[Rfam]
RNA sequence: CUCUUAUUCAGAGCAGUGGAGAUACAAAGGAUCUGUGAAGCUGCGGCAACCCCCGUUAUGCGGGAAGGUGCCAACCUGAGCGAGCAAUCGAACAAUAAGAG
Numbered sequence: 001c002u003c004u005u006a007u008u009c010a011g012a013g014c015a016g017u018g019g020a021g022a023u024a025c026a027a028a029g030g031a032u033c034u035g036u037g038a039a040g041c042u043g044c045g046g047c048a049a050c051c052c053c054c055g056u057u058a059u060g061c062g063g064g065a066a067g068g069u070g071c072c073a074a075c076c077u078g079a080g081c082g083a084g085c086a087a088u089c090g091a092a093c094a095a096u097a098a099g100a101g
Base pairs, nucleotide, nucleotide: 001101002100003099004098005097006096007095008094013044014043015042016041017040021033022032023031030077045072046071047070048069050068051067052064053063054062055061081090082089083088

About this RNA:
Rfam assigns this 101-nucleotide RNA from Mordavella massiliensis to the family "SAM riboswitch aptamer (S box leader)". The SAM riboswitch is found upstream of a number of genes which code for proteins involved in methionine or cysteine biosynthesis in Gram-positive bacteria.